Shown here is a 127-nucleotide RNA sequence from Carlito syrichta, a member of the family "Small nucleolar RNA SNORA75". About the family: U23 belongs to the H/ACA class of snoRNAs. snoRNAs bind a number of proteins (including dyskerin, Gar1p and Nop10p in the case of the H/ACA class) to form snoRNP complexes. It scores 88 bits against the family's covariance model. Lineage of the source: Eukaryota > Craniata > Eutheria > Primates > Carlito. The base pairs follow the family's consensus structure, which was predicted with PFOLD. Gene Ontology terms of the family: nucleolus and RNA processing.

[Rfam]
RNA sequence: GUCUUCUCAUUGAGCUCCUUUGUGUUUGUUGGUGGCAGUUUAUGAAUUCACAUGAGAAGAAGACAGAACUCACAGAGCAUCACCUUCUAUCUUUACAGAGGUAUAUUGACUGUUUUGUGAGACAUUC
Numbered sequence: 001g002u003c004u005u006c007u008c009a010u011u012g013a014g015c016u017c018c019u020u021u022g023u024g025u026u027u028g029u030u031g032g033u034g035g036c037a038g039u040u041u042a043u044g045a046a047u048u049c050a051c052a053u054g055a056g057a058a059g060a061a062g063a064c065a066g067a068a069c070u071c072a073c074a075g076a077g078c079a080u081c082a083c084c085u086u087c088u089a090u091c092u093u094u095a096c097a098g099a100g101g102u103a104u105a106u107u108g109a110c111u112g113u114u115u116u117g118u119g120a121g122a123c124a125u126u127c
Base pairs, nucleotide, nucleotide: 003059004058005057006056007055008054014051016046018044023037024036025035026034070120071119072118073117074116075115084101085100086099087098088097